[Rfam]
RNA: Bacillus sRNA ncr1015
RNA sequence: UUGUAAGAUAAGAUAUUUAUGCCUUUUUCAAUUGUUAAAGUCGUGAUCCGAUUAUAUCAUCGUGUCUCUUUAUAUGCAAUAAAAAAGAACCUGGUAAAAAUUACCAUGUUCUUUUUUGA
Numbered sequence: 001u002u003g004u005a006a007g008a009u010a011a012g013a014u015a016u017u018u019a020u021g022c023c024u025u026u027u028u029c030a031a032u033u034g035u036u037a038a039a040g041u042c043g044u045g046a047u048c049c050g051a052u053u054a055u056a057u058c059a060u061c062g063u064g065u066c067u068c069u070u071u072a073u074a075u076g077c078a079a080u081a082a083a084a085a086a087g088a089a090c091c092u093g094g095u096a097a098a099a100a101u102u103a104c105c106a107u108g109u110u111c112u113u114u115u116u117u118g119a
Base pairs, nucleotide, nucleotide: 034073035072037070038069040065042062043061083115084114085113086112087111088110089109090108092106093105094104